[Rfam]
RNA sequence: GCGAGUCGAGCUUGUCGACUUGUAUUGAUCGUCAAUGUCCGAUCGAACCGCAGUCGAAUGGCUGCGGACCGACUACGGGAGAGAACGCUGAGCGUCACCUU
Numbered sequence: 001g002c003g004a005g006u007c008g009a010g011c012u013u014g015u016c017g018a019c020u021u022g023u024a025u026u027g028a029u030c031g032u033c034a035a036u037g038u039c040c041g042a043u044c045g046a047a048c049c050g051c052a053g054u055c056g057a058a059u060g061g062c063u064g065c066g067g068a069c070c071g072a073c074u075a076c077g078g079g080a081g082a083g084a085a086c087g088c089u090g091a092g093c094g095u096c097a098c099c100u101u
Stems, first nucleotide, its partner, number of pairs: 001023008048067008